[Rfam]
RNA sequence: AACCGCAGGGAUCGCCCUCCACCAGCGUGUUACGCCCGUGGGGGCAAUUGCG
Numbered sequence: 001a002a003c004c005g006c007a008g009g010g011a012u013c014g015c016c017c018u019c020c021a022c023c024a025g026c027g028u029g030u031u032a033c034g035c036c037c038g039u040g041g042g043g044g045c046a047a048u049u050g051c052g
Stems, first nucleotide, its partner, number of pairs: 016044007025035004

The record is a 52-nucleotide RNA from Litoreibacter roseus, which matches "ffh sRNA" in Rfam. Lineage of the source: Bacteria > Pseudomonadati > Rhodobacterales > Roseobacteraceae > Litoreibacter. The family's consensus secondary structure is taken from published work. On this family, see Meyer et al., BMC Genomics 2009: "Identification of candidate structured RNAs in the marine organism 'Candidatus Pelagibacter ubique'".